This 144-nucleotide RNA from Eschrichtius robustus belongs to the Rfam family "Small nucleolar RNA U109". The family has 26 seed sequences and 1,405 matches in Rfam 15.1. NCBI's taxonomy places the organism under Eukaryota, Craniata, Dipnotetrapodomorpha, Amniota, Eschrichtius. Gene Ontology terms of the family: RNA processing and nucleolus. By type it is an H/ACA-box small nucleolar RNA. The match comes from Rfam's covariance-model search (52 bits).
RNA sequence: UUGCCUAAUGCAAUCAGUGUUCUACUCUUCUAUUAAAGAACCUGACUAUAUGGGCAGCAUGCUACAUACAAGAAAUGAGAAGGUAUUUUUAGGGCUGCUGACUUUUUAGUUGAGUUUAUGUGGCAGUGUAUUUCUUCUACAUUA
Numbered sequence: 001u002u003g004c005c006u007a008a009u010g011c012a013a014u015c016a017g018u019g020u021u022c023u024a025c026u027c028u029u030c031u032a033u034u035a036a037a038g039a040a041c042c043u044g045a046c047u048a049u050a051u052g053g054g055c056a057g058c059a060u061g062c063u064a065c066a067u068a069c070a071a072g073a074a075a076u077g078a079g080a081a082g083g084u085a086u087u088u089u090u091a092g093g094g095c096u097g098c099u100g101a102c103u104u105u106u107u108a109g110u111u112g113a114g115u116u117u118a119u120g121u122g123g124c125a126g127u128g129u130a131u132u133u134c135u136u137c138u139a140c141a142u143u144a
Stems, first nucleotide, its partner, number of pairs: 003062002006059001017043001019041005079137004094124002098120001099118003103114003